[Rfam]
A member of the RNA family "mir-276 microRNA precursor family" from Hyalella azteca, 85 nucleotides long. Rfam links the family to the GO terms miRNA-mediated post-transcriptional gene silencing and RISC complex. It scores 67 bits against the family's covariance model.
RNA sequence: CUUGAUCUCUGCGAGCAGCGAGGUAAGGAGUUCCUACGUGAUAUGGUCCGUAGGAACUUCAUACCGUGCUCUUCGUAAGAGCAUC
Numbered sequence: 001c002u003u004g005a006u007c008u009c010u011g012c013g014a015g016c017a018g019c020g021a022g023g024u025a026a027g028g029a030g031u032u033c034c035u036a037c038g039u040g041a042u043a044u045g046g047u048c049c050g051u052a053g054g055a056a057c058u059u060c061a062u063a064c065c066g067u068g069c070u071c072u073u074c075g076u077a078a079g080a081g082c083a084u085c
Base pairs, nucleotide, nucleotide: 012075013074014073017070018069019068020067022065023064024063025062028059029058030057031056032055033054034053035052036051037050
On this family, see Skalsky et al., BMC Genomics 2010: "Identification of microRNAs expressed in two mosquito vectors, Aedes albopictus and Culex quinquefasciatus". The organism belongs to Hyalella, within Eukaryota.